Rfam assigns this 78-nucleotide RNA sequence from Helicoverpa armigera to the family "mir-2756 microRNA precursor family". The match comes from Rfam's covariance-model search (61 bits). Lineage of the source: Eukaryota > Panarthropoda > Pancrustacea > Endopterygota > Helicoverpa. Pairs were carried over by alignment from the consensus structure, which was predicted with RNAalifold.
RNA sequence: UCGGUAGCAUACCCUGUAGCUGCUAAGGGGCGUAGUUGCUAUACCUCCCCUUCGCCGCUACAUCGUACACUACCGGCU
Numbered sequence: 001u002c003g004g005u006a007g008c009a010u011a012c013c014c015u016g017u018a019g020c021u022g023c024u025a026a027g028g029g030g031c032g033u034a035g036u037u038g039c040u041a042u043a044c045c046u047c048c049c050c051u052u053c054g055c056c057g058c059u060a061c062a063u064c065g066u067a068c069a070c071u072a073c074c075g076g077c078u
Stems, first nucleotide, its partner, number of pairs: 001076007010067003015062006022055002026051005032045001035042001